RNA sequence: GGUGGACUUCGCAUGGCGUUUAUCCCAUGAACUCCCCCAGGGCAGGAAUGCAGUAAGGGUCAGUGGGCUCUGGCGGGUAUGCGGAGUCCUUUUGU
Numbered sequence: 001g002g003u004g005g006a007c008u009u010c011g012c013a014u015g016g017c018g019u020u021u022a023u024c025c026c027a028u029g030a031a032c033u034c035c036c037c038c039a040g041g042g043c044a045g046g047a048a049u050g051c052a053g054u055a056a057g058g059g060u061c062a063g064u065g066g067g068c069u070c071u072g073g074c075g076g077g078u079a080u081g082c083g084g085a086g087u088c089c090u091u092u093u094g095u
Base pairs, nucleotide, nucleotide: 004089005088006087007086008085009084010083011082012081013080014077017075018074019073020072024067025066026065027064028063034059035058036057042051043050044049